Shown here is a 105-nucleotide RNA sequence from Myripristis murdjan, a member of the family "Vault RNA". This family of RNAs are found as part of the enigmatic vault ribonucleoprotein complex. The complex consists of a major vault protein (MVP), two minor vault proteins (VPARP and TEP1), and several small untranslated RNA molecules. It has been suggested that the vault complex is involved in drug resistance. Rfam 15.1 lists 2,873 matches to the family in 431 species.

RNA sequence: GCACUGGCAUAGCUCAGUGGUUACUUCGAUCAUCAAAUCUCCUGGAGGUUUCGCAGGUCUCUCUCCCGACCAGGGAUCGAACCACGGGCGCUGUCCAGUGUUUUC
Numbered sequence: 001g002c003a004c005u006g007g008c009a010u011a012g013c014u015c016a017g018u019g020g021u022u023a024c025u026u027c028g029a030u031c032a033u034c035a036a037a038u039c040u041c042c043u044g045g046a047g048g049u050u051u052c053g054c055a056g057g058u059c060u061c062u063c064u065c066c067c068g069a070c071c072a073g074g075g076a077u078c079g080a081a082c083c084a085c086g087g088g089c090g091c092u093g094u095c096c097a098g099u100g101u102u103u104u105c
Stems, first nucleotide, its partner, number of pairs: 002100006012089004017085004025081007